[Rfam]
RNA sequence: GAAAGUAAAUGAAUAUGAAUUCGUAUAACCUCACGCGAUACGGGCUGAGGGUUUCUACUUGGAACCGUAAAUUCCUGACUACGAAAAUAGUGCCUUGGCAC
Numbered sequence: 001g002a003a004a005g006u007a008a009a010u011g012a013a014u015a016u017g018a019a020u021u022c023g024u025a026u027a028a029c030c031u032c033a034c035g036c037g038a039u040a041c042g043g044g045c046u047g048a049g050g051g052u053u054u055c056u057a058c059u060u061g062g063a064a065c066c067g068u069a070a071a072u073u074c075c076u077g078a079c080u081a082c083g084a085a086a087a088u089a090g091u092g093c094c095u096u097g098g099c100a101c
Stems, first nucleotide, its partner, number of pairs: 020085006029050005035045002059077001061075004
Rfam assigns this 101-nucleotide RNA sequence from Halalkalibacter suaedae to the family "Purine riboswitch aptamer". The organism belongs to Halalkalibacter, within Bacteria. Its family is annotated with purine nucleobase biosynthetic process in the Gene Ontology. Pairs were carried over by alignment from the consensus structure, which is taken from published work. It scores 64 bits against the family's covariance model.